[Rfam]
RNA sequence: ACAAAAACAGUGAUAAGGAAGAGUAGAUGUGAAGCUGCUUUAAGAGAGAAGAACCCAUUGGUUGAAAGGUUCUUUAGGUAAGAGACAUUGAAAACCACCUUUGAGUUGAAUACUGAAAUUAUAGUAAGUAUAUCCGUUUCCUGCGUUAAGGGGUUUAGAGAUAACAGUAGAUAUACAGUAGAAAAAUUUUAUUUUCUUUAUUGUAUAGCUUUAAUAAUCAUUGCCUAAAUAAGGCUUAGAUGCUGUUGAAGUUGGGUGGAACCGCGAAAUAACACUCGUCCCAUAU
Numbered sequence: 001a002c003a004a005a006a007a008c009a010g011u012g013a014u015a016a017g018g019a020a021g022a023g024u025a026g027a028u029g030u031g032a033a034g035c036u037g038c039u040u041u042a043a044g045a046g047a048g049a050a051g052a053a054c055c056c057a058u059u060g061g062u063u064g065a066a067a068g069g070u071u072c073u074u075u076a077g078g079u080a081a082g083a084g085a086c087a088u089u090g091a092a093a094a095c096c097a098c099c100u101u102u103g104a105g106u107u108g109a110a111u112a113c114u115g116a117a118a119u120u121a122u123a124g125u126a127a128g129u130a131u132a133u134c135c136g137u138u139u140c141c142u143g144c145g146u147u148a149a150g151g152g153g154u155u156u157a158g159a160g161a162u163a164a165c166a167g168u169a170g171a172u173a174u175a176c177a178g179u180a181g182a183a184a185a186a187u188u189u190u191a192u193u194u195u196c197u198u199u200a201u202u203g204u205a206u207a208g209c210u211u212u213a214a215u216a217a218u219c220a221u222u223g224c225c226u227a228a229a230u231a232a233g234g235c236u237u238a239g240a241u242g243c244u245g246u247u248g249a250a251g252u253u254g255g256g257u258g259g260a261a262c263c264g265c266g267a268a269a270u271a272a273c274a275c276u277c278g279u280c281c282c283a284u285a286u
Base pairs, nucleotide, nucleotide: 007106008105015101016100017099018098026089027088028087029086030085039078040077041076050073051072052071053070054069055068108133110131111130112129113128114127135145136144137143163247164246165245166244167243168242169241253283254282255281256280264279265278266277267276
T-box leader: a 286-nucleotide RNA sequence from Clostridium carboxidivorans. The organism belongs to Clostridium carboxidivorans, within Bacteria. Its family is annotated with tRNA binding in the Gene Ontology. About the family: Uncharged tRNA acts as the effector for transcription antitermination of genes in the T-box leader family.